[Rfam]
RNA: SL588 non-coding RNA
RNA sequence: CUGGCCCCUGUAUGGGAACGAGGGCCUCGGUUGGGCAGGGUGGCUCCUGUCCCCCCGGGGCUCUCGCCCGUCUUGGGGCCC
Number, nucleotide and partner (000 for none) at each position: 001c000002u000003g080004g079005c078006c077007c076008c075009u000010g000011u000012a000013u000014g069015g068016g067017a000018a000019c066020g065021a000022g063023g062024g061025c060026c059027u058028c057029g056030g055031u000032u000033g052034g051035g050036c049037a048038g047039g046040g045041u000042g000043g000044c000045u040046c039047c038048u037049g036050u035051c034052c033053c000054c000055c030056c029057g028058g027059g026060g025061c024062u023063c022064u000065c020066g019067c016068c015069c014070g000071u000072c000073u000074u000075g008076g007077g006078g005079c004080c003081c000